[Rfam]
RNA: Plastid-rps12 3UTR RNA
RNA sequence: GUUGAAAUUAGUACAAAUCCAAUCAAUUACGUUUUUAAUUUAAAAUGAGAAAGAAUUCCCCUUUAGUAGCAAAUGGUAUUCAUUAAGCAGGGAAAUCCUAU
Numbered sequence: 001g002u003u004g005a006a007a008u009u010a011g012u013a014c015a016a017a018u019c020c021a022a023u024c025a026a027u028u029a030c031g032u033u034u035u036u037a038a039u040u041u042a043a044a045a046u047g048a049g050a051a052a053g054a055a056u057u058c059c060c061c062u063u064u065a066g067u068a069g070c071a072a073a074u075g076g077u078a079u080u081c082a083u084u085a086a087g088c089a090g091g092g093a094a095a096u097c098c099u100a101u
Base pairs, nucleotide, nucleotide: 008022009021011019058092059091060090063082065080066079067078069077070076